[Rfam]
RNA: Ribosomal protein L13 leader
Organism: Litchfieldia salsa
RNA sequence: GGUAUGGUAUUUUAACCCCACGAUAAAGCCCCGGAAAGUCUUUAAUCGUGUUAGAAUAAAAUAAACC
Numbered sequence: 001g002g003u004a005u006g007g008u009a010u011u012u013u014a015a016c017c018c019c020a021c022g023a024u025a026a027a028g029c030c031c032c033g034g035a036a037a038g039u040c041u042u043u044a045a046u047c048g049u050g051u052u053a054g055a056a057u058a059a060a061a062u063a064a065a066c067c
Base pairs, nucleotide, nucleotide: 008063009062010061011060012059013058014057019050020049021048022047023046025043026042027041028040